[Rfam]
Nucleotides: 065
Stems, first nucleotide, its partner, number of pairs: 001064003005060003009056005017048002021045004026040002
Number, partner (000 for none) and nucleotide at each position: 001064a002063g003062u004000c005060a006059c007058g008000a009056g010055a011054g012053c013052c014000g015000u016000a017048c018047g019000c020000a021045g022044c023043a024042a025000g026040g027039c028000g029000u030000c031000a032000a033000u034000g035000u036000c037000a038000a039027g040026u041000u042024u043023u044022g045021u046000u047018c048017g049000u050000u051000c052013g053012g054011c055010u056009c057000g058007c059006g060005u061000u062003a063002u064001u065000a